[Rfam]
RNA sequence: AAUCGCCCGCUCCAUGGAGGUCAAGGCUUCCAUGGCUGAGCGAUCUUUCAAUCUGGUCGUGCCGCUGGCCCACGAGGCCACCGCCAUGCGCACCACGGAUACCGACCGCCAACUGGCGAUCCGGUCCGGCGCAGUUUCCCCGCUGAGCAAUCGGCCGGGCGACGUAGAUAGCACGAUACUUCC
Numbered sequence: 001a002a003u004c005g006c007c008c009g010c011u012c013c014a015u016g017g018a019g020g021u022c023a024a025g026g027c028u029u030c031c032a033u034g035g036c037u038g039a040g041c042g043a044u045c046u047u048u049c050a051a052u053c054u055g056g057u058c059g060u061g062c063c064g065c066u067g068g069c070c071c072a073c074g075a076g077g078c079c080a081c082c083g084c085c086a087u088g089c090g091c092a093c094c095a096c097g098g099a100u101a102c103c104g105a106c107c108g109c110c111a112a113c114u115g116g117c118g119a120u121c122c123g124g125u126c127c128g129g130c131g132c133a134g135u136u137u138c139c140c141c142g143c144u145g146a147g148c149a150a151u152c153g154g155c156c157g158g159g160c161g162a163c164g165u166a167g168a169u170a171g172c173a174c175g176a177u178a179c180u181u182c183c
Stems, first nucleotide, its partner, number of pairs: 004042003012035010057176006063083002066080005087133005096128004102124002107118004135162002138159003142155005